Shown here is a 280-nucleotide RNA from Araneus ventricosus, a member of the family "Nuclear RNase P".
RNA sequence: UGCGUGGUGAGUUUGCACUAGAGGCCACGCAUGCGCACUGGUUGCGCAGAUGCCUUUGGAAAGGUCUGAGGUAGUGUCGUUGCAGGUCCGAGAGGGACCCCCAAACAAAUCUGGGGCGAGUGAAGAGCAAAUGUUGCGUUCCGCGGUGAGGUUGCAAGGGAGGUAGCUUGCUACCGAUGCGCUCCUGCCGCGUGAAUUUGGGAACACCUGUGACAGGAUUGCUUACAGCUCGAUGUGCAAAACCCCAUGGGUAACUCAAUUCAGACUACUCCUCCACGCA
Numbered sequence: 001u002g003c004g005u006g007g008u009g010a011g012u013u014u015g016c017a018c019u020a021g022a023g024g025c026c027a028c029g030c031a032u033g034c035g036c037a038c039u040g041g042u043u044g045c046g047c048a049g050a051u052g053c054c055u056u057u058g059g060a061a062a063g064g065u066c067u068g069a070g071g072u073a074g075u076g077u078c079g080u081u082g083c084a085g086g087u088c089c090g091a092g093a094g095g096g097a098c099c100c101c102c103a104a105a106c107a108a109a110u111c112u113g114g115g116g117c118g119a120g121u122g123a124a125g126a127g128c129a130a131a132u133g134u135u136g137c138g139u140u141c142c143g144c145g146g147u148g149a150g151g152u153u154g155c156a157a158g159g160g161a162g163g164u165a166g167c168u169u170g171c172u173a174c175c176g177a178u179g180c181g182c183u184c185c186u187g188c189c190g191c192g193u194g195a196a197u198u199u200g201g202g203a204a205c206a207c208c209u210g211u212g213a214c215a216g217g218a219u220u221g222c223u224u225a226c227a228g229c230u231c232g233a234u235g236u237g238c239a240a241a242a243c244c245c246c247a248u249g250g251g252u253a254a255c256u257c258a259a260u261u262c263a264g265a266c267u268a269c270u271c272c273u274c275c276a277c278g279c280a
Stems, first nucleotide, its partner, number of pairs: 001280004007274001009272001012241007020057005033047005066264005075215004085099005100115004105110001116211003120207003138197003242252004
Overview:
A search with the family's covariance model found it, with a score of 111 bits.